[Rfam]
RNA: Small nucleolar RNA SNORA75
RNA sequence: CACUUCUCAAUGAGCUCCUUCCUGCCAACAAAUCCAUGGCAGCUGAUGGAUUCGCACGAGAAGAAUAUCAACUGUUCAGUACUGGCAAACUCACAAUGUGCUCCAUCAGUUGUGAUGAGCCACUGCUGUUCUACAAAC
Number, nucleotide and partner (000 for none) at each position: 001c000002a000003c063004u062005u061006c060007u059008c058009a000010a000011u000012g000013a000014g055015c054016u050017c049018c048019u000020u000021c000022c042023u041024g040025c039026c038027a000028a000029c000030a000031a000032a000033u000034c000035c000036a000037u000038g026039g025040c024041a023042g022043c000044u000045g000046a000047u000048g018049g017050a016051u000052u000053c000054g015055c014056a000057c000058g008059a007060g006061a005062a004063g003064a000065a000066u000067a000068u000069c000070a000071a000072c000073u000074g131075u000076u000077c128078a127079g000080u000081a000082c000083u000084g000085g000086c000087a000088a000089a000090c000091u000092c000093a000094c112095a111096a110097u109098g000099u108100g107101c000102u000103c000104c000105a000106u000107c100108a099109g097110u096111u095112g094113u000114g000115a000116u000117g000118a000119g000120c000121c000122a000123c000124u000125g000126c000127u078128g077129u000130u000131c074132u000133a000134c000135a000136a000137a000138c000